[Rfam]
RNA sequence: AGUGUCGAACAGAGGUCGCGAUUCUUAUUAGUAAGUAAUUAGAGUUGAAAAGCAACGAAGAAGAUUAUCUGAAAGGAAGCAUCGCCGAAGUGUAUUAAUGCUUUUUCAUUAGUACAUUGGGCCUUGACUUAAUAGGUCAAGGACUGUCGUAAGAAAUUUCUUACGGAGCGCUAUCGAAACU
Numbered sequence: 001a002g003u004g005u006c007g008a009a010c011a012g013a014g015g016u017c018g019c020g021a022u023u024c025u026u027a028u029u030a031g032u033a034a035g036u037a038a039u040u041a042g043a044g045u046u047g048a049a050a051a052g053c054a055a056c057g058a059a060g061a062a063g064a065u066u067a068u069c070u071g072a073a074a075g076g077a078a079g080c081a082u083c084g085c086c087g088a089a090g091u092g093u094a095u096u097a098a099u100g101c102u103u104u105u106u107c108a109u110u111a112g113u114a115c116a117u118u119g120g121g122c123c124u125u126g127a128c129u130u131a132a133u134a135g136g137u138c139a140a141g142g143a144c145u146g147u148c149g150u151a152a153g154a155a156a157u158u159u160c161u162u163a164c165g166g167a168g169c170g171c172u173a174u175c176g177a178a179a180c181u
Stems, first nucleotide, its partner, number of pairs: 006176003011172002018085005024079003034070002036067005089118012119145002122142008147166007

Lysine riboswitch aptamer: a 181-nucleotide RNA sequence from Ligilactobacillus hayakitensis. The source organism's lineage runs through Bacteria, Bacillota, Lactobacillales, Ligilactobacillus and Ligilactobacillus hayakitensis.